[Rfam]
Nucleotides: 094
Stems, first nucleotide, its partner, number of pairs: 002089006013079004018075004027069004
Number, partner (000 for none) and nucleotide at each position: 001000u002089g003088g004087c005086c006085g007084g008000c009000u010000a011000u012000a013079g014078c015077c016076c017000a018075g019074c020073g021072g022000u023000u024000c025000c026000u027069u028068c029067g030066g031000u032000g033000u034000u035000u036000c037000a038000c039000a040000a041000c042000u043000a044000u045000u046000g047000u048000g049000c050000g051000a052000g053000c054000c055000c056000c057000a058000u059000c060000a061000g062000g063000g064000g065000u066030u067029c068028g069027a070000u071000a072021c073020c074019g075018c076016g077015g078014g079013c080000a081000c082000u083000u084007c085006u086005g087004g088003c089002c090000c091000a092000u093000u094000u